[Rfam]
RNA sequence: AUAGACUUACAAAGCUGUCCGAAGACAGCAGGUGUCAUUACGACAUAAAAGGCUCCGGCCUUGCCUGCCGAGGAAAGGCGUAAUCCCCUCGCGGUGACGCGCGGGUUUGAAUGCUCUUUUCGCGGUAUGGCGAAAAGGGCUUUUUUUGAUGAAUC
Numbered sequence: 001a002u003a004g005a006c007u008u009a010c011a012a013a014g015c016u017g018u019c020c021g022a023a024g025a026c027a028g029c030a031g032g033u034g035u036c037a038u039u040a041c042g043a044c045a046u047a048a049a050a051g052g053c054u055c056c057g058g059c060c061u062u063g064c065c066u067g068c069c070g071a072g073g074a075a076a077g078g079c080g081u082a083a084u085c086c087c088c089u090c091g092c093g094g095u096g097a098c099g100c101g102c103g104g105g106u107u108u109g110a111a112u113g114c115u116c117u118u119u120u121c122g123c124g125g126u127a128u129g130g131c132g133a134a135a136a137g138g139g140c141u142u143u144u145u146u147u148g149a150u151g152a153a154u155c
Stems, first nucleotide, its partner, number of pairs: 028068006034044003113140010
The record is a 155-nucleotide RNA sequence from Anaerotruncus massiliensis, which matches "Ribosomal protein L10 leader" in Rfam. Rfam describes the family as follows. This family is a putative r-protein leader autoregulatory structure found in B. subtilis and other low-GC Gram-positive bacteria. It is located in the 5' untranslated regions of mRNAs encoding ribosomal proteins L10 and L12 (rplJ-rplL). A Rho-independent transcription terminator structure that is probably involved in regulation is included at the 3' end. It is annotated as a cis-regulatory leader. Pairs were carried over by alignment from the consensus structure, which was predicted with CMfinder. The organism belongs to Anaerotruncus, within Bacteria.